[Rfam]
ffh sRNA: a 52-nucleotide RNA sequence from Marivivens niveibacter. A search with the family's covariance model found it, with a score of 61 bits. The base pairs follow the family's consensus structure, which is taken from published work.
RNA sequence: AUAUGGGGGGAUCGCCGUCCAUCAGCGCGUUGCGCCCAUGGGCGCGAUUGUG
Numbered sequence: 001a002u003a004u005g006g007g008g009g010g011a012u013c014g015c016c017g018u019c020c021a022u023c024a025g026c027g028c029g030u031u032g033c034g035c036c037c038a039u040g041g042g043c044g045c046g047a048u049u050g051u052g
Base pairs, nucleotide, nucleotide: 016044017043018042019041020040021039022038025035026034027033028032